[Rfam]
RNA sequence: GGUUAUUGAGGAAUAGGCAAGGCAACUAUUACGCCAGAAAUGGUAGCAAAGGUAUCUGGGAUACGCCGCCCCACCAGUAACC
Numbered sequence: 001g002g003u004u005a006u007u008g009a010g011g012a013a014u015a016g017g018c019a020a021g022g023c024a025a026c027u028a029u030u031a032c033g034c035c036a037g038a039a040a041u042g043g044u045a046g047c048a049a050a051g052g053u054a055u056c057u058g059g060g061a062u063a064c065g066c067c068g069c070c071c072c073a074c075c076a077g078u079a080a081c082c
Stems, first nucleotide, its partner, number of pairs: 001082008011030001013029004021067003032051001033044004057073004
Dot-bracket structure: ((((((((..(.((((....[[[..))))).(((((....))))......).....((((....]]]..)))).))))))))
RNA: skipping-rope RNA